The family of this 105-nucleotide RNA from Coffea arabica is "Small nucleolar RNA Z107/R87". The family's RNA type in Rfam is C/D-box small nucleolar RNA. The base pairs follow the family's consensus structure, which was predicted with RNAfold.
[Rfam]
RNA sequence: GAUUGCAAUGAUGAUUAGUAACGUUCAAGCUCAACAGACCGGAUUGCACAAGGCUUCUGUACUUUAAGGGCUUAUGCAUGUCGAUUUUCUCUUUACCAAGCGAUC
Numbered sequence: 001g002a003u004u005g006c007a008a009u010g011a012u013g014a015u016u017a018g019u020a021a022c023g024u025u026c027a028a029g030c031u032c033a034a035c036a037g038a039c040c041g042g043a044u045u046g047c048a049c050a051a052g053g054c055u056u057c058u059g060u061a062c063u064u065u066a067a068g069g070g071c072u073u074a075u076g077c078a079u080g081u082c083g084a085u086u087u088u089c090u091c092u093u094u095a096c097c098a099a100g101c102g103a104u105c
Base pairs, nucleotide, nucleotide: 001105002104003103004102005101006100
Dot-bracket structure: ((((((.............................................................................................))))))